[Rfam]
RNA sequence: UUACCAGCGGUCUCUAAUUCGCUUGGUGCAGGUCGGGAACCGGUUCGCAAUGAGAUUGGAUUUUUUUUUUGGAGCGGAAUGGAUCCCGCCUUGCAUCAACUGAAUCGGAGACCGCGGUGAGG
Numbered sequence: 001u002u003a004c005c006a007g008c009g010g011u012c013u014c015u016a017a018u019u020c021g022c023u024u025g026g027u028g029c030a031g032g033u034c035g036g037g038a039a040c041c042g043g044u045u046c047g048c049a050a051u052g053a054g055a056u057u058g059g060a061u062u063u064u065u066u067u068u069u070u071g072g073a074g075c076g077g078a079a080u081g082g083a084u085c086c087c088g089c090c091u092u093g094c095a096u097c098a099a100c101u102g103a104a105u106c107g108g109a110g111a112c113c114g115c116g117g118u119g120a121g122g
Stems, first nucleotide, its partner, number of pairs: 013109002017105004023099010034088005040082002
This 122-nucleotide sequence from Cannabis sativa belongs to the Rfam family "MIR168 microRNA precursor family". It scores 112 bits against the family's covariance model. Rfam links the family to the GO terms miRNA-mediated post-transcriptional gene silencing and RISC complex. The organism belongs to Cannabis, within Eukaryota.